[Rfam]
RNA: MIR7993 microRNA precursor family
RNA sequence: UUAAGUUAACCACAUAAAAUAUAUGUCAUCUCCUUUAAUUAUAUGCAUUCGCCUUAAUAAGCCGCAAAAACUUAAGAUGUUCUCAACUUGAGGUUGAUGCAUAUAAUUAAAGGAGAACAUAUUUUAUAUGGUUAACUUAACU
Numbered sequence: 001u002u003a004a005g006u007u008a009a010c011c012a013c014a015u016a017a018a019a020u021a022u023a024u025g026u027c028a029u030c031u032c033c034u035u036u037a038a039u040u041a042u043a044u045g046c047a048u049u050c051g052c053c054u055u056a057a058u059a060a061g062c063c064g065c066a067a068a069a070a071c072u073u074a075a076g077a078u079g080u081u082c083u084c085a086a087c088u089u090g091a092g093g094u095u096g097a098u099g100c101a102u103a104u105a106a107u108u109a110a111a112g113g114a115g116a117a118c119a120u121a122u123u124u125u126a127u128a129u130g131g132u133u134a135a136c137u138u139a140a141c142u
Stems, first nucleotide, its partner, number of pairs: 001140012014127009025118001030115020051094007